[Rfam]
The family of this 162-nucleotide sequence from Clostridium botulinum is "M-box riboswitch aptamer (ykoK leader)". It is one of the family's seed sequences. M-box riboswitch, also know as ykoK leader is described as a metaloregulatory RNA that sense divalent metals and function as a genetic control element of genes related to divalent metal transport in bacteria. It was first reported upstream of the B.subtilis ykoK gene and genes with related functions in other bacteria. Taxonomically the source falls in Clostridium botulinum B (Bacteria, Clostridia, Clostridium, Clostridium botulinum). Rfam links the family to the GO terms regulation of gene expression and response to magnesium ion. Pairs were carried over by alignment from the consensus structure. The literature on the family includes a 2004 paper in Proc Natl Acad Sci U S A by Barrick et al., "New RNA motifs suggest an expanded scope for riboswitches in bacterial genetic control".
RNA sequence: UAAUAUUCUCGGUAGGUGAGGUUACCAUAGGGAUACGGAUUGCUGCCGCAAAAUAAUGGAGACAUUAUUAGUUGGUUAGCAGGAUACGUCGAAAAAUAAGGCGUAUUUUAAUGCAAUUUCAUUGCCCUACGAAGCUGAAGCUUGAACGAGCAGAUAAUAAGA
Numbered sequence: 001u002a003a004u005a006u007u008c009u010c011g012g013u014a015g016g017u018g019a020g021g022u023u024a025c026c027a028u029a030g031g032g033a034u035a036c037g038g039a040u041u042g043c044u045g046c047c048g049c050a051a052a053a054u055a056a057u058g059g060a061g062a063c064a065u066u067a068u069u070a071g072u073u074g075g076u077u078a079g080c081a082g083g084a085u086a087c088g089u090c091g092a093a094a095a096a097u098a099a100g101g102c103g104u105a106u107u108u109u110a111a112u113g114c115a116a117u118u119u120c121a122u123u124g125c126c127c128u129a130c131g132a133a134g135c136u137g138a139a140g141c142u143u144g145a146a147c148g149a150g151c152a153g154a155u156a157a158u159a160a161g162a
Stems, first nucleotide, its partner, number of pairs: 005158003009154002011147001013099001015142003020136003026131001028129005039117005045076004054067002057064002082108004088102003
Dot-bracket structure: ....(((.(((.[.(((..(((...(.(((((......(((((.((((.....((.((....)).)).....)))).....((((..(((........])))..))))....))))).......))))).)..)))...)))....).....)).)))....